[Rfam]
RNA: c-di-AMP riboswitch aptamer (ydaO/yuaA leader)
RNA sequence: UCGUGUCCUCGCCGAGGCCCAUCAGGACGCGACGUUCCGCAACACAGGGAUGGGCACGGAAGACCCAGCAGUGCGGCUCCUCCCCCUGAGGAGCCUUUGGGGUGAACCGCUCGUGUCGAGCGGCAGGCAACCUUCACGCCUGAACCCGACAGGUCAUCUUUCGCAGGCGGAUCUGAAGGAACUC
Numbered sequence: 001u002c003g004u005g006u007c008c009u010c011g012c013c014g015a016g017g018c019c020c021a022u023c024a025g026g027a028c029g030c031g032a033c034g035u036u037c038c039g040c041a042a043c044a045c046a047g048g049g050a051u052g053g054g055c056a057c058g059g060a061a062g063a064c065c066c067a068g069c070a071g072u073g074c075g076g077c078u079c080c081u082c083c084c085c086c087u088g089a090g091g092a093g094c095c096u097u098u099g100g101g102g103u104g105a106a107c108c109g110c111u112c113g114u115g116u117c118g119a120g121c122g123g124c125a126g127g128c129a130a131c132c133u134u135c136a137c138g139c140c141u142g143a144a145c146c147c148g149a150c151a152g153g154u155c156a157u158c159u160u161u162c163g164c165a166g167g168c169g170g171a172u173c174u175g176a177a178g179g180a181a182c183u184c
Base pairs, nucleotide, nucleotide: 010169011168012167013166017055018054019053020052021051022050023049057163058162059161060160061159066099067098100147101146102145108122109121110120111119125141126140127139128138
Dot-bracket structure: .........((((...(((((((.........................))))))).(((((....((..............................))(((.....((((.......))))..((((.........))))...)))...........)))))..))))...............